[Rfam]
RNA sequence: AGCUGGAAGGAUUCCUGGCAGAGUGAUUUUGUUGUGACGUAAUGUAAAUCACAUUGCCAGGGAUUUCCAACCAGCU
Numbered sequence: 001a002g003c004u005g006g007a008a009g010g011a012u013u014c015c016u017g018g019c020a021g022a023g024u025g026a027u028u029u030u031g032u033u034g035u036g037a038c039g040u041a042a043u044g045u046a047a048a049u050c051a052c053a054u055u056g057c058c059a060g061g062g063a064u065u066u067c068c069a070a071c072c073a074g075c076u
Stems, first nucleotide, its partner, number of pairs: 001076002004073003009068002011064011023052007
RNA: mir-23 microRNA precursor family